[Rfam]
Nucleotides: 108
Base pairs, nucleotide, nucleotide: 022094023093024092025091028088030086031085032084033083034082035081036080037079038078039077040076041075042074043073050072051071052070053069055067056066
Number, partner (000 for none) and nucleotide at each position: 001000c002000c003000u004000g005000c006000a007000g008000c009000a010000g011000a012000u013000c014000a015000g016000g017000c018000c019000c020000c021000u022094c023093a024092c025091u026000u027000a028088g029000u030086g031085u032084a033083u034082u035081u036080g037079a038078c039077a040076a041075g042074c043073u044000g045000a046000g047000u048000u049000g050072g051071a052070c053069a054000c055067u056066c057000u058000g059000u060000u061000u062000c063000a064000g065000u066056g067055a068000g069053u070052g071051u072050c073043a074042g075041u076040u077039u078038g079037u080036c081035a082034a083033a084032u085031a086030c087000c088028c089000a090000a091025a092024g093023u094022g095000a096000g097000g098000c099000g100000u101000c102000a103000c104000u105000u106000g107000u108000c

Record summary
The family of this 108-nucleotide RNA from Nothobranchius furzeri is "mir-223 microRNA precursor family". The family has 27 seed sequences and 674 matches in Rfam 15.1. The family's consensus secondary structure was predicted with RNAalifold. Its family is annotated with RISC complex and miRNA-mediated post-transcriptional gene silencing in the Gene Ontology. NCBI's taxonomy places the organism under Eukaryota, Opisthokonta, Gnathostomata, Euacanthomorphacea, Nothobranchius. For this family Rfam cites "Vertebrate microRNA genes" (Lim et al., Science, 2003).